[Rfam]
mir-5365 microRNA precursor family: a 78-nucleotide RNA from Parascaris univalens. The source organism's lineage runs through Eukaryota, Eumetazoa, Bilateria, Nematoda and Parascaris. The base pairs follow the family's consensus structure, which was predicted with RNAalifold. Its family is annotated with miRNA-mediated post-transcriptional gene silencing and RISC complex in the Gene Ontology.
RNA sequence: UCAGCUGGACCAGCUGUUCCAUCUUAAUCAUAAAAUUCAAUUCAUAAUGAUUAAGAAGAAACAACUGGUCUUAGUGAG
Number, nucleotide and partner (000 for none) at each position: 001u077002c076003a075004g000005c000006u000007g071008g070009a069010c068011c067012a066013g065014c000015u063016g062017u061018u060019c000020c058021a000022u056023c055024u054025u053026a052027a051028u050029c049030a048031u000032a000033a000034a000035a000036u047037u046038c000039a000040a000041u000042u000043c000044a000045u000046a037047a036048u030049g029050a028051u027052u026053a025054a024055g023056a022057a000058g020059a000060a018061a017062c016063a015064a000065c013066u012067g011068g010069u009070c008071u007072u000073a000074g000075u003076g002077a001078g000